Flavobacterium-1 RNA: a 125-nucleotide sequence.

RNA sequence: CUCAAAGUAGGCGUACAAAUCUUGCCCAAGGCAUUUCCCUGAACGUAAGCGAUGAUCCGAAAGGUAGCGACCAAAUGAGUAUGGAACAGGGCCAACUUCUGCCUGCAGCAGAGGCUCUGAACCAU
Numbered sequence: 001c002u003c004a005a006a007g008u009a010g011g012c013g014u015a016c017a018a019a020u021c022u023u024g025c026c027c028a029a030g031g032c033a034u035u036u037c038c039c040u041g042a043a044c045g046u047a048a049g050c051g052a053u054g055a056u057c058c059g060a061a062a063g064g065u066a067g068c069g070a071c072c073a074a075a076u077g078a079g080u081a082u083g084g085a086a087c088a089g090g091g092c093c094a095a096c097u098u099c100u101g102c103c104u105g106c107a108g109c110a111g112a113g114g115c116u117c118u119g120a121a122c123c124a125u
Base pairs, nucleotide, nucleotide: 001079002078003077004076008073010071011046012045013044014043016041017040023033024032025031026030049068050067057064058063082124083123084122087119088118089117090116091115092114093113099108100107101106
Notes
Pairs were carried over by alignment from the consensus structure, which is taken from published work.